[Rfam]
RNA sequence: CUCAACUCUAGUCGAGUGAAGUCGAGUCAAGGUGUUGCGUCACCACGACGUCAUCAGUUCGAGGAAAAUUUGAU
Number, nucleotide and partner (000 for none) at each position: 001c000002u073003c072004a071005a070006c000007u000008c000009u065010a000011g000012u062013c061014g060015a059016g058017u056018g055019a054020a000021g052022u000023c000024g000025a000026g049027u048028c047029a000030a000031g044032g000033u000034g000035u000036u000037g000038c000039g000040u000041c000042a000043c000044c031045a000046c000047g028048a027049c026050g000051u000052c021053a000054u019055c018056a017057g000058u016059u015060c014061g013062a012063g000064g000065a009066a000067a000068a000069u000070u005071u004072g003073a002074u000
Record summary: Rfam assigns this 74-nucleotide RNA sequence from Bombyx mori to the family "mir-2816 microRNA precursor family". The match comes from Rfam's covariance-model search (58 bits). The base pairs follow the family's consensus structure, which was predicted with RNAalifold. The source organism's lineage runs through Eukaryota, Panarthropoda, Neoptera, Bombycoidea and Bombyx.